[Rfam]
RNA: Selenocysteine transfer RNA
Nucleotides: 078
Stems, first nucleotide, its partner, number of pairs: 001078005007072001012027006028046006048053001056068003
Number, partner (000 for none) and nucleotide at each position: 001078g002077c003076c004075g005074c006000g007072g008000c009000a010000a011000a012027g013026c014025u015024g016023g017022c018000u019000g020000g021000u022017g023016c024015u025014g026013g027012c028046u029045g030044c031043g032042g033041a034000c035000u036000u037000c038000a039000g040000a041033u042032c043031c044030g045029u046028a047000g048053a049000g050000g051000c052000c053048u054000a055000g056068u057067g058066g059000u060000u061000c062000c063000a064000u065000u066058c067057c068056a069000a070000c071000u072007c073000g074005g075004c076003g077002g078001c